[Rfam]
RNA sequence: AACUUAUCCAGAGUGACUGAGGGAUCAGGCCCAAUGAAGUCCGGCAACCGCCAUGCAAAUGGAAAGGUGCUACUUCCUGCAGAAUGUAAUGAUUCUGAAAGAUAAGCC
Dot-bracket structure: ..((((((....(.(((...(((..[[[[)))......))))((((.((.(((......)))...))))))...(]]]]((((((......))))))..)))))))..

This 108-nucleotide RNA sequence from Bacillus gobiensis belongs to the Rfam family "SAM riboswitch aptamer (S box leader)". Rfam links the family to the GO term regulation of gene expression. Lineage of the source: Bacteria > Bacillota > Caryophanales > Bacillaceae > Bacillus. The match comes from Rfam's covariance-model search (86 bits).